RNA sequence: AAUAAAUAAAGCUAAACCUAUUGAAAGGUAGGGACAGAAAGUUACGGUUCCAAAACGGAAAGCCGGACUGCCGAA
Numbered sequence: 001a002a003u004a005a006a007u008a009a010a011g012c013u014a015a016a017c018c019u020a021u022u023g024a025a026a027g028g029u030a031g032g033g034a035c036a037g038a039a040a041g042u043u044a045c046g047g048u049u050c051c052a053a054a055a056c057g058g059a060a061a062g063c064c065g066g067a068c069u070g071c072c073g074a075a
Base pairs, nucleotide, nucleotide: 012037013036017032018031019030020029021028022027040069041068042067043066045065046064047063048060049059050058
RNA: c-di-GMP-I riboswitch aptamer
Organism: Methylobacter tundripaludum